[Rfam]
RNA sequence: AGCAACAGUCGUGACUGGCGUGCUCGGGUGGAAGUGACCACCGGGGAGCGACGAAUCUGCUGGCGGUGCCGCGCGCCUGGGCACUCCGA
Numbered sequence: 001a002g003c004a005a006c007a008g009u010c011g012u013g014a015c016u017g018g019c020g021u022g023c024u025c026g027g028g029u030g031g032a033a034g035u036g037a038c039c040a041c042c043g044g045g046g047a048g049c050g051a052c053g054a055a056u057c058u059g060c061u062g063g064c065g066g067u068g069c070c071g072c073g074c075g076c077c078u079g080g081g082c083a084c085u086c087c088g089a
Base pairs, nucleotide, nucleotide: 004056008052009051010050011049012048015045016044017077018076019075020074021073028041029040030039031038066084067083068082069081070080
The family of this 89-nucleotide RNA sequence from Frankia sp. R43 is "ZMP/ZTP riboswitch aptamer (pfl RNA motif)". The literature on the family includes a 2019 paper in Acta Crystallogr F Struct Biol Commun by Jones et al., "Co-crystal structure of the Fusobacterium ulcerans ZTP riboswitch using an X-ray free-electron laser".